Shown here is a 283-nucleotide part of an RNA from Gossypium aridum, a member of the family "Eukaryotic large subunit ribosomal RNA". Rfam links the family to the GO terms ribosome and structural constituent of ribosome. Its Rfam clan is "LSU clan". The source organism's lineage runs through Eukaryota, Embryophyta, Spermatophyta, Malvoideae and Gossypium. A search with the family's covariance model found it, with a score of 2355 bits. The family's consensus secondary structure is taken from published work.
RNA sequence: GAGUCUGACAUGUGUACGAGUCAACGGGCUAGAAAACCCAUAAGGUGCAAGGAAGCUAAUUGGUGGGAUCCCUCAUGGUGUACUAUCGAUCAACCUUGAUCUUUUGAGAAAGGUUCGAGAGAGAGCAUGCCUGUCGAGACCCAAAAUAUGGUGAACUAUGCUUGAGUGGGACAAUGCUAGAGGAAACUCUAGUGGAGGUCUGCAGCGAUACUUACGUGCAAAUCGUUCAUCUGACUUUGUUAUAAGGGCAAAAGACUAAUUGAACCAUCUAGUAGUUGGUUCC
Numbered sequence: 001g002a003g004u005c006u007g008a009c010a011u012g013u014g015u016a017c018g019a020g021u022c023a024a025c026g027g028g029c030u031a032g033a034a035a036a037c038c039c040a041u042a043a044g045g046u047g048c049a050a051g052g053a054a055g056c057u058a059a060u061u062g063g064u065g066g067g068a069u070c071c072c073u074c075a076u077g078g079u080g081u082a083c084u085a086u087c088g089a090u091c092a093a094c095c096u097u098g099a100u101c102u103u104u105u106g107a108g109a110a111a112g113g114u115u116c117g118a119g120a121g122a123g124a125g126c127a128u129g130c131c132u133g134u135c136g137a138g139a140c141c142c143a144a145a146a147u148a149u150g151g152u153g154a155a156c157u158a159u160g161c162u163u164g165a166g167u168g169g170g171a172c173a174a175u176g177c178u179a180g181a182g183g184a185a186a187c188u189c190u191a192g193u194g195g196a197g198g199u200c201u202g203c204a205g206c207g208a209u210a211c212u213u214a215c216g217u218g219c220a221a222a223u224c225g226u227u228c229a230u231c232u233g234a235c236u237u238u239g240u241u242a243u244a245a246g247g248g249c250a251a252a253a254g255a256c257u258a259a260u261u262g263a264a265c266c267a268u269c270u271a272g273u274a275g276u277u278g279g280u281u282c283c
Base pairs, nucleotide, nucleotide: 006136007135008134009133010132012130013129014128015127017125020046021045022044026039027038028037030035050057051056062087063086064085065084066083070078071077090119091117093115094113095112096111100107101106140279141278143276148268149267150266151265152264157244158243159242160241162239164237165236166235167233169201170200171199172198176193177192178191179190180189181188182187205230207228208227210226211225214223247257248256